[Rfam]
RNA sequence: ACAGUGGAUCAGACGGUCGCUUCCGCGGUAAAACGCGGAGGAGGAAAGUCCGGACUCCACAGGACAGGGUGGCCGCUAACGGCGGCCUCGAGCGAUCGAGGGAAAGUGCCACAGAAAACACACCGCCCGGCGGGCUCCGGUUCGCACCGGACCGUCGAGUAAGGUUGAAAAGGUGAGGUAAGAGCUCACCGGUCCGCCAGUGAUGGCGUACGCAUGGUAAACCCCACCUGGAGCAAGACCAAAUAGGAGGGUCGGGUCGUCCGCCUGACACCCUCGGGUAAGGUCGCUGGACCCCGUGAGCAAUCACGGGGCAAGAUGAAUGACCGUCCCGCUUCCUGUUGGGAAGCGCGACAGAAUCCGGCUUAACGAUCCACUGUCCCC
Numbered sequence: 001a002c003a004g005u006g007g008a009u010c011a012g013a014c015g016g017u018c019g020c021u022u023c024c025g026c027g028g029u030a031a032a033a034c035g036c037g038g039a040g041g042a043g044g045a046a047a048g049u050c051c052g053g054a055c056u057c058c059a060c061a062g063g064a065c066a067g068g069g070u071g072g073c074c075g076c077u078a079a080c081g082g083c084g085g086c087c088u089c090g091a092g093c094g095a096u097c098g099a100g101g102g103a104a105a106g107u108g109c110c111a112c113a114g115a116a117a118a119c120a121c122a123c124c125g126c127c128c129g130g131c132g133g134g135c136u137c138c139g140g141u142u143c144g145c146a147c148c149g150g151a152c153c154g155u156c157g158a159g160u161a162a163g164g165u166u167g168a169a170a171a172g173g174u175g176a177g178g179u180a181a182g183a184g185c186u187c188a189c190c191g192g193u194c195c196g197c198c199a200g201u202g203a204u205g206g207c208g209u210a211c212g213c214a215u216g217g218u219a220a221a222c223c224c225c226a227c228c229u230g231g232a233g234c235a236a237g238a239c240c241a242a243a244u245a246g247g248a249g250g251g252u253c254g255g256g257u258c259g260u261c262c263g264c265c266u267g268a269c270a271c272c273c274u275c276g277g278g279u280a281a282g283g284u285c286g287c288u289g290g291a292c293c294c295c296g297u298g299a300g301c302a303a304u305c306a307c308g309g310g311g312c313a314a315g316a317u318g319a320a321u322g323a324c325c326g327u328c329c330c331g332c333u334u335c336c337u338g339u340u341g342g343g344a345a346g347c348g349c350g351a352c353a354g355a356a357u358c359c360g361g362c363u364u365a366a367c368g369a370u371c372c373a374c375u376g377u378c379c380c381c
Stems, first nucleotide, its partner, number of pairs: 001377010012328007020041008046364003050361005055233004062262004067229005072086005087100005101224002106222002108218003123164002125160002128157006172190006191213001192211002195208005237285004247275006253267005292311008
Dot-bracket structure: ((((((((((.(((((((.((((((((......))))))))....[[[.[[[[[((((...[[[[.((((((((((.....)))))(((((....)))))((...(((((............((((.((((((..................)))))).))..)).......((((((.......))))))(((.(((((....))))).)).)..)))..)))))))))))))...((((......(((((((((((.]]]])))))..))))))......))))......((((((((....))))))))..........)))))))............................]]]]]]]]...))))))))))....
A member of the RNA family "Bacterial RNase P class A", 381 nucleotides long. By type it is a ribozyme. From the family's description: Ribonuclease P (RNase P) is a ubiquitous endoribonuclease, found in archaea, bacteria and eukarya as well as chloroplasts and mitochondria.